Description: The family of this 124-nucleotide RNA sequence from Prodigiosinella confusarubida is "Enterobacteria greA leader". The family's consensus secondary structure is taken from published work. The family's RNA type in Rfam is cis-regulatory leader. The literature on the family includes a 2010 paper in Genome Biol by Naville and Gautheret, "Premature terminator analysis sheds light on a hidden world of bacterial transcriptional attenuation". Its family is annotated with regulation of gene expression in the Gene Ontology.

RNA sequence: GUCAUACUACGGCGCAAUAAGGGUUAAAGUAAACGAUGACCCUUGUGGAACUCUAGGGUAAAAUACGUAUCAAAAUGCAACAUGGUGUCUAACCUGGAAGUUUUGUUCUGGGCUAGGGCGCUUU
Numbered sequence: 001g002u003c004a005u006a007c008u009a010c011g012g013c014g015c016a017a018u019a020a021g022g023g024u025u026a027a028a029g030u031a032a033a034c035g036a037u038g039a040c041c042c043u044u045g046u047g048g049a050a051c052u053c054u055a056g057g058g059u060a061a062a063a064u065a066c067g068u069a070u071c072a073a074a075a076u077g078c079a080a081c082a083u084g085g086u087g088u089c090u091a092a093c094c095u096g097g098a099a100g101u102u103u104u105g106u107u108c109u110g111g112g113c114u115a116g117g118g119c120g121c122u123u124u
Stems, first nucleotide, its partner, number of pairs: 001040005010035002014030002041048002057071004088117004093112006